Background:
The family of this 110-nucleotide sequence from Neorhizobium sp. SOG26 is "Alphaproteobacterial ar15". The pairing is the family consensus, mapped onto this sequence. Rfam classes the family as a small RNA.
Nucleotides: 110
Stems, first nucleotide, its partner, number of pairs: 001045005007039003015036004055073007081105006088097003
Number, partner (000 for none) and nucleotide at each position: 001045a002044g003043c004042a005041g006000a007039u008038g009037c010000a011000c012000c013000a014000c015036g016035c017034g018033g019000c020000u021000u022000c023000c024000c025000u026000c027000c028000c029000a030000g031000u032000u033018c034017c035016g036015c037009g038008u039007a040000u041005c042004u043003g044002c045001u046000g047000u048000u049000c050000c051000c052000c053000u054000c055073u056072g057071g058070a059069g060068g061067u062000c063000c064000a065000u066000g067061a068060c069059c070058u071057u072056c073055a074000c075000a076000c077000u078000u079000c080000a081105u082104g083103g084102g085101c086100u087000c088097c089096g090095g091000a092000u093000u094000u095090c096089c097088g098000u099000g100086a101085g102084c103083c104082c105081a106000u107000u108000u109000u110000u

Taxonomically the source falls in Neorhizobium (Bacteria, Alphaproteobacteria, Hyphomicrobiales, Rhizobiaceae). It scores 98 bits against the family's covariance model.